[Rfam]
Shown here is a 125-nucleotide sequence from Castor canadensis, a member of the family "Small nucleolar RNA SNORA40". Rfam's curators write: The snoRNA ACA 40 belongs to the H/ACA family of snoRNAs and guides the pseudouridylation of 28S rRNA subunit at position U4565. NB This family has a high threshold value to exclude a large number of closely related sequences that do not appear to have conserved H and ACA boxes, and may be pseudogenes. The source organism's lineage runs through Eukaryota, Gnathostomata, Sarcopterygii, Castoridae and Castor. The family has 28 seed sequences and 2,550 matches in Rfam 15.1.
RNA sequence: AGCACUUGUAUAUGUGUGUGUGUUUACACAGAUGUAUAGACAGGUGCAAAAAAUAACUCCUCUUUUGCAACCCAGAAUUGACUGUUCAGUUACAGGAGUUUUGUCUCAGUAUAAGACAGUGUAUU
Numbered sequence: 001a002g003c004a005c006u007u008g009u010a011u012a013u014g015u016g017u018g019u020g021u022g023u024u025u026a027c028a029c030a031g032a033u034g035u036a037u038a039g040a041c042a043g044g045u046g047c048a049a050a051a052a053a054u055a056a057c058u059c060c061u062c063u064u065u066u067g068c069a070a071c072c073c074a075g076a077a078u079u080g081a082c083u084g085u086u087c088a089g090u091u092a093c094a095g096g097a098g099u100u101u102u103g104u105c106u107c108a109g110u111a112u113a114a115g116a117c118a119g120u121g122u123a124u125u
Stems, first nucleotide, its partner, number of pairs: 002047008011038001014033002017030005058121001060119002063116005073103007